[Rfam]
RNA: HDV ribozyme from F. prausnitzii
Organism: Rodentolepis nana
RNA sequence: GUUGCGCCCGAUAGACUUACCUCCACGUGGUGCACAUUAGGCAACGUAUACUCAUACGGCAAAAAAGUGAAU
Numbered sequence: 001g002u003u004g005c006g007c008c009c010g011a012u013a014g015a016c017u018u019a020c021c022u023c024c025a026c027g028u029g030g031u032g033c034a035c036a037u038u039a040g041g042c043a044a045c046g047u048a049u050a051c052u053c054a055u056a057c058g059g060c061a062a063a064a065a066a067g068u069g070a071a072u
Stems, first nucleotide, its partner, number of pairs: 001038001003036002006033002019031003045058005